The family of this 76-nucleotide sequence from Cyprinodon variegatus is "mir-218 microRNA precursor family".

[Rfam]
RNA sequence: CAAGACCCCAUUGUGCUUGAUCUAACCAUGCAGUGCAUCUUCUGUCCAUGGUUGUGCCAAGCACUUUGGGGUUUUG
Numbered sequence: 001c002a003a004g005a006c007c008c009c010a011u012u013g014u015g016c017u018u019g020a021u022c023u024a025a026c027c028a029u030g031c032a033g034u035g036c037a038u039c040u041u042c043u044g045u046c047c048a049u050g051g052u053u054g055u056g057c058c059a060a061g062c063a064c065u066u067u068g069g070g071g072u073u074u075u076g
Stems, first nucleotide, its partner, number of pairs: 001076009013064007024053007